[Rfam]
RNA: c-di-GMP-I riboswitch aptamer
Organism: Paenibacillus sp. MY03
RNA sequence: ACUAUAUACCUGCAAAUCCGUCGAAAGGCGCGAGACGCAAAGCUAUAGGGACUACUUCUCACGGGGAAAUGUCAGCCAGUUGCACAG
Number, nucleotide and partner (000 for none) at each position: 001a000002c000003u000004a000005u000006a000007u000008a000009c000010c000011u000012g038013c037014a000015a000016a000017u033018c032019c030020g029021u028022c027023g000024a000025a000026a000027g022028g021029c020030g019031c000032g018033a017034g000035a000036c000037g013038c012039a000040a000041a081042g080043c079044u078045a000046u000047a000048g077049g076050g073051a072052c071053u000054a000055c000056u000057u067058c066059u065060c064061a000062c000063g000064g060065g059066g058067a057068a000069a000070u000071g052072u051073c050074a000075g000076c049077c048078a044079g043080u042081u041082g000083c000084a000085c000086a000087g000